A member of the RNA family "Glycine riboswitch aptamer" from Alteribacillus persepolensis, 102 nucleotides long. Gene Ontology term of the family: glycine biosynthetic process. Rfam describes the family as follows. This family represents the bacterial glycine riboswitch.

[Rfam]
RNA sequence: AUGAUAAUUAUGGGAGAGCGCAGGACGACUGCCACCGAAGGAGCAAGUUCCAAAAAUGACCCUUGGAGCUAAUCUCUCAGGUUUCUGUACCAUAAUUGGACG
Numbered sequence: 001a002u003g004a005u006a007a008u009u010a011u012g013g014g015a016g017a018g019c020g021c022a023g024g025a026c027g028a029c030u031g032c033c034a035c036c037g038a039a040g041g042a043g044c045a046a047g048u049u050c051c052a053a054a055a056a057u058g059a060c061c062c063u064u065g066g067a068g069c070u071a072a073u074c075u076c077u078c079a080g081g082u083u084u085c086u087g088u089a090c091c092a093u094a095a096u097u098g099g100a101c102g
Stems, first nucleotide, its partner, number of pairs: 006097008020032004034082003037078002041076003047069007
The source organism's lineage runs through Bacteria, Bacillati, Bacillota, Bacilli and Alteribacillus. A search with the family's covariance model found it, with a score of 63 bits.